[Rfam]
This 72-nucleotide RNA from an Actinomycetota bacterium belongs to the Rfam family "tRNA".
Clan: tRNA clan.
RNA sequence: GGCGACGUGGCCAAGUGGCUAAGGCAGGGGCCUGCAAAGCCCUCAUCCCCGGUUCGAAUCCGGGCGUCGCCU
Numbered sequence: 001g002g003c004g005a006c007g008u009g010g011c012c013a014a015g016u017g018g019c020u021a022a023g024g025c026a027g028g029g030g031c032c033u034g035c036a037a038a039g040c041c042c043u044c045a046u047c048c049c050c051g052g053u054u055c056g057a058a059u060c061c062g063g064g065c066g067u068c069g070c071c072u
Stems, first nucleotide, its partner, number of pairs: 001071007010025003027043005048064005